[Rfam]
Nucleotides: 035
Stems, first nucleotide, its partner, number of pairs: 003020003010034003
Number, partner (000 for none) and nucleotide at each position: 001000a002000c003020g004019g005018a006000g007000a008000a009000a010034g011033c012032u013000g014000a015000a016000a017000a018005u019004c020003c021000a022000u023000u024000a025000a026000a027000g028000a029000g030000u031000a032012g033011g034010c035000g
The family of this 35-nucleotide RNA from Lacinutrix sp. Bg11-31 is "DUF805b RNA". It scores 41 bits against the family's covariance model. The organism belongs to Lacinutrix, within Bacteria. By type it is a cis-regulatory element. The base pairs follow the family's consensus structure, which is taken from published work.